[Rfam]
RNA: U2 spliceosomal RNA
Organism: Octopus sinensis
RNA sequence: AUCGCUUCUCGGCCUUUUCGCUAAGAUCAAAGUGUAGUAUUUAUCCUUAUCAGCUUUAUAUCUGAAUAUCUGAAACAUUUAGGGCCAUACAACGAGGCGAAAAGUUAUAGGGCUUGCCUUUGCCACGGGUUGACCUAGUAUUGCAAUACUUCGAAGAUAUAAUUAAAUCAUA
Numbered sequence: 001a002u003c004g005c006u007u008c009u010c011g012g013c014c015u016u017u018u019c020g021c022u023a024a025g026a027u028c029a030a031a032g033u034g035u036a037g038u039a040u041u042u043a044u045c046c047u048u049a050u051c052a053g054c055u056u057u058a059u060a061u062c063u064g065a066a067u068a069u070c071u072g073a074a075a076c077a078u079u080u081a082g083g084g085c086c087a088u089a090c091a092a093c094g095a096g097g098c099g100a101a102a103a104g105u106u107a108u109a110g111g112g113c114u115u116g117c118c119u120u121u122g123c124c125a126c127g128g129g130u131u132g133a134c135c136u137a138g139u140a141u142u143g144c145a146a147u148a149c150u151u152c153g154a155a156g157a158u159a160u161a162a163u164u165a166a167a168u169c170a171u172a
Base pairs, nucleotide, nucleotide: 007026008025009024011022012021013020048066050065051064052063053062069083070082071081072080073079074078096124097123098122109120110119111118112117128164129163130162131161132160134156136154138152